[Rfam]
RNA sequence: GCGUCGGAAUUUCUCCUCCCAUUGAUUCCGACGCGUUCCCCUCUGGAGGUUUUACCUUCACAACUGGCCAGGCGUUCGCGUCUGGCCUUUUUU
Numbered sequence: 001g002c003g004u005c006g007g008a009a010u011u012u013c014u015c016c017u018c019c020c021a022u023u024g025a026u027u028c029c030g031a032c033g034c035g036u037u038c039c040c041c042u043c044u045g046g047a048g049g050u051u052u053u054a055c056c057u058u059c060a061c062a063a064c065u066g067g068c069c070a071g072g073c074g075u076u077c078g079c080g081u082c083u084g085g086c087c088u089u090u091u092u093u
Stems, first nucleotide, its partner, number of pairs: 001034005007028004044060007066087009
RNA: Alphaproteobacterial ar15